Notes: Shown here is a 100-nucleotide sequence from Scyliorhinus torazame, a member of the family "Small nucleolar RNA SNORD16". The match comes from Rfam's covariance-model search (86 bits). Lineage of the source: Eukaryota > Deuterostomia > Elasmobranchii > Galeomorphii > Scyliorhinus. For this family Rfam cites "A novel small nucleolar RNA (U16) is encoded inside a ribosomal protein intron and originates by processing of the pre-mRNA" (Fragapane et al., EMBO J, 1993). The family's RNA type in Rfam is C/D-box small nucleolar RNA. The family's consensus secondary structure was predicted with PFOLD.
RNA sequence: UGCUAUGAUGGUGUAAUUUGCGUCCAAUGCUGUGCACAGUGACAGUUGCCUUCUGUUUUUACACUGGUGCAGACAUAUGACGACCAUUUAGAUCUGAGCA
Numbered sequence: 001u002g003c004u005a006u007g008a009u010g011g012u013g014u015a016a017u018u019u020g021c022g023u024c025c026a027a028u029g030c031u032g033u034g035c036a037c038a039g040u041g042a043c044a045g046u047u048g049c050c051u052u053c054u055g056u057u058u059u060u061a062c063a064c065u066g067g068u069g070c071a072g073a074c075a076u077a078u079g080a081c082g083a084c085c086a087u088u089u090a091g092a093u094c095u096g097a098g099c100a
Base pairs, nucleotide, nucleotide: 001100002099003098021082022081023080024079030072031071032070033069034068039064040063041057042056043055044054045053